PyrR binding site: a 177-nucleotide RNA sequence from Paenibacillus nasutitermitis.
[Rfam]
RNA sequence: AGUACCUUUAAUUCAGUCCAGAGAGGCUGUCAAGGUAUCGUGAUUAAAUGACAUUAUCCUAUCAUUUCUGACUUUUAGAAUCGCUUGUGUUUUGCGCACAGGCGGUAAUUCUCUGGGUUCAGUUUGGAUAUCUUCAUUUAAAACGACUCCUUGCGACGGCCGCAAGGAGUUUUUUAU
Numbered sequence: 001a002g003u004a005c006c007u008u009u010a011a012u013u014c015a016g017u018c019c020a021g022a023g024a025g026g027c028u029g030u031c032a033a034g035g036u037a038u039c040g041u042g043a044u045u046a047a048a049u050g051a052c053a054u055u056a057u058c059c060u061a062u063c064a065u066u067u068c069u070g071a072c073u074u075u076u077a078g079a080a081u082c083g084c085u086u087g088u089g090u091u092u093u094g095c096g097c098a099c100a101g102g103c104g105g106u107a108a109u110u111c112u113c114u115g116g117g118u119u120c121a122g123u124u125u126g127g128a129u130a131u132c133u134u135c136a137u138u139u140a141a142a143a144c145g146a147c148u149c150c151u152u153g154c155g156a157c158g159g160c161c162g163c164a165a166g167g168a169g170u171u172u173u174u175u176a177u
Stems, first nucleotide, its partner, number of pairs: 003037006014029005044141008055130005145171011

The family's RNA type in Rfam is cis-regulatory element. Lineage of the source: Bacteria > Bacillota > Caryophanales > Paenibacillaceae > Paenibacillus.